[Rfam]
RNA: Mammalian CPEB3 ribozyme
Organism: Crocodylus porosus
RNA sequence: ACAGCUCCAUUCAAGCCUGCAACAGAAGUGCUCACAGUGUGGCUCUGUCAGAUUCCAGUCAAUCUGUGAAUUCUGCU
Numbered sequence: 001a002c003a004g005c006u007c008c009a010u011u012c013a014a015g016c017c018u019g020c021a022a023c024a025g026a027a028g029u030g031c032u033c034a035c036a037g038u039g040u041g042g043c044u045c046u047g048u049c050a051g052a053u054u055c056c057a058g059u060c061a062a063u064c065u066g067u068g069a070a071u072u073c074u075g076c077u
Base pairs, nucleotide, nucleotide: 014044015043016042017041021077023075024074025073026072027071028040029039030038049066050065051064052063053062054061